The record is a 78-nucleotide RNA sequence from Gossypium lobatum, which matches "MIR7510 microRNA precursor family" in Rfam. Pairs were carried over by alignment from the consensus structure, which was predicted with RNAalifold. The match comes from Rfam's covariance-model search (94 bits). The source organism's lineage runs through Eukaryota, Embryophyta, Tracheophyta, Pentapetalae and Gossypium.
RNA sequence: AGCGCCGCUAAAGGUCAUGAUCUUUAGCGGCGUUUGUGAUAAAAGCGCCGCUAAAGGUCAUGGUCUUUAGCGGCGUUU
Number, nucleotide and partner (000 for none) at each position: 001a000002g000003c075004g074005c073006c072007g071008c070009u069010a068011a067012a066013g065014g064015u063016c062017a061018u060019g059020a058021u057022c056023u055024u054025u053026a052027g051028c050029g049030g048031c047032g046033u045034u000035u000036g000037u000038g000039a000040u000041a000042a000043a000044a000045g033046c032047g031048c030049c029050g028051c027052u026053a025054a024055a023056g022057g021058u020059c019060a018061u017062g016063g015064u014065c013066u012067u011068u010069a009070g008071c007072g006073g005074c004075g003076u000077u000078u000